This 312-nucleotide sequence from Hyunsoonleella aquatilis belongs to the Rfam family "Bacterial RNase P class A".

[Rfam]
RNA sequence: UGAGCAGAUUACCUUAUCGCGGUGACGAUUAAUGUCACCGAGGAAAGUCCGAACACCGCAGUGCAGCAUAGUGGUUAACAGCCACCGGCCGUGAGGUCAGGAAAAGUGCAACAGAAAGUAUGUACGGGUAAGGCCGUAGUGAAAUCAGGUAAACUCUAUGUGGUGCAAUGCCAUGUAUACCAGCGUUUAGGGUGGCACGCCCGAUGCUGGAGGGUAGGUAGCUAGAGCGUACUGGCAACAGUGCGCCAAGAUAAAUGAUGGGGGUCACGCUUUGUCGUGAUACAGAAUUCGGCUUAUAGAUUUGCUCGGGCA
Numbered sequence: 001u002g003a004g005c006a007g008a009u010u011a012c013c014u015u016a017u018c019g020c021g022g023u024g025a026c027g028a029u030u031a032a033u034g035u036c037a038c039c040g041a042g043g044a045a046a047g048u049c050c051g052a053a054c055a056c057c058g059c060a061g062u063g064c065a066g067c068a069u070a071g072u073g074g075u076u077a078a079c080a081g082c083c084a085c086c087g088g089c090c091g092u093g094a095g096g097u098c099a100g101g102a103a104a105a106g107u108g109c110a111a112c113a114g115a116a117a118g119u120a121u122g123u124a125c126g127g128g129u130a131a132g133g134c135c136g137u138a139g140u141g142a143a144a145u146c147a148g149g150u151a152a153a154c155u156c157u158a159u160g161u162g163g164u165g166c167a168a169u170g171c172c173a174u175g176u177a178u179a180c181c182a183g184c185g186u187u188u189a190g191g192g193u194g195g196c197a198c199g200c201c202c203g204a205u206g207c208u209g210g211a212g213g214g215u216a217g218g219u220a221g222c223u224a225g226a227g228c229g230u231a232c233u234g235g236c237a238a239c240a241g242u243g244c245g246c247c248a249a250g251a252u253a254a255a256u257g258a259u260g261g262g263g264g265u266c267a268c269g270c271u272u273u274g275u276c277g278u279g280a281u282a283c284a285g286a287a288u289u290c291g292g293c294u295u296a297u298a299g300a301u302u303u304g305c306u307c308g309g310g311c312a
Stems, first nucleotide, its partner, number of pairs: 001308010011297001012263007020040008045295003049292005054165004061198004066161005071085005086100001087098004101156002106154002108150002169220004180210005190202004227246008

Description: The base pairs follow the family's consensus structure, which is taken from published work.